[Rfam]
RNA: Archaeal large subunit ribosomal RNA, nucleotides 2657 to 2908
RNA sequence: GGUACCUGACGUGAACGGUCGUAUAGUACGAGAGGAACUACGACUGGUCGCCACUGGUGUACCGGUUGUUCGAGAGAGCAGAUGCCGGGUAGCCACGCGACACGGGGUAAGAGCUGAACGCAUCUAAGCUCGAAACCCACAUGGAAACGAGGUACCGUAGAGGUCCCUCCUAGAAGAGGAGGUAGAUAGACUCGGGGUGUACGCACCAAGGCAACGAGGUGUUAAGCCCACGAGCACUAACAGACCGAGCCA
Number, nucleotide and partner (000 for none) at each position: 001g156002g155003u154004a153005c152006c151007u150008g000009a000010c143011g142012u141013g140014a000015a000016c046017g045018g044019u043020c042021g041022u040023a039024u000025a000026g000027u000028a000029c000030g000031a000032g000033a000034g000035g000036a000037a000038c000039u023040a022041c021042g020043a019044c018045u017046g016047g101048u100049c099050g098051c097052c000053a000054c000055u095056g094057g093058u000059g000060u000061a000062c088063c087064g086065g085066u084067u080068g079069u078070u077071c076072g000073a000074g000075a000076g071077a070078g069079c068080a067081g000082a000083u000084g066085c065086c064087g063088g062089g000090u000091a000092g000093c057094c056095a055096c000097g051098c050099g049100a048101c047102a000103c000104g138105g137106g136107g000108u000109a000110a000111g131112a130113g129114c128115u127116g000117a000118a000119c000120g000121c000122a000123u000124c000125u000126a000127a115128g114129c113130u112131c111132g000133a000134a000135a000136c106137c105138c104139a000140c013141a012142u011143g010144g000145a000146a000147a000148c000149g000150a007151g006152g005153u004154a003155c002156c001157g000158u000159a000160g000161a000162g246163g245164u244165c243166c182167c181168u180169c179170c178171u000172a000173g000174a000175a000176g000177a000178g170179g169180a168181g167182g166183u000184a000185g000186a000187u239188a238189g237190a000191c234192u233193c232194g231195g229196g228197g227198u000199g000200u000201a000202c000203g222204c221205a220206c219207c218208a000209a000210g215211g000212c000213a000214a000215c210216g000217a000218g207219g206220u205221g204222u203223u000224a000225a000226g000227c197228c196229c195230a000231c194232g193233a192234g191235c000236a000237c189238u188239a187240a000241c000242a000243g165244a164245c163246c162247g000248a000249g000250c000251c000252a000